[Rfam]
The family of this 119-nucleotide sequence from Paraburkholderia sacchari is "Group II catalytic intron D1-D4-2". The pairing is the family consensus, mapped onto this sequence. NCBI's taxonomy places the organism under Bacteria, Pseudomonadati, Burkholderiales, Burkholderiaceae, Paraburkholderia.

RNA sequence: GGGAGCAGGCCUCCCGAAGUCUGCUUUGAGGAGCAGGCUUCAAACCGCCCGGUGCUGCUGCGUGCCAUGAGCGUCGCUCAGUCGCUGUUCGGAACAGAAGCGUGGUUGCACGGAAAGGG
Numbered sequence: 001g002g003g004a005g006c007a008g009g010c011c012u013c014c015c016g017a018a019g020u021c022u023g024c025u026u027u028g029a030g031g032a033g034c035a036g037g038c039u040u041c042a043a044a045c046c047g048c049c050c051g052g053u054g055c056u057g058c059u060g061c062g063u064g065c066c067a068u069g070a071g072c073g074u075c076g077c078u079c080a081g082u083c084g085c086u087g088u089u090c091g092g093a094a095c096a097g098a099a100g101c102g103u104g105g106u107u108g109c110a111c112g113g114a115a116a117g118g119g
Stems, first nucleotide, its partner, number of pairs: 001015005016041006023034004048113002052111004057106003061102003
Rfam describes the family as follows. Group II introns are found in rRNA, tRNA and mRNA of organelles in fungi, plants and protists, and also in mRNA in bacteria. Rfam 15.1 lists 1,231 matches to the family in 625 species.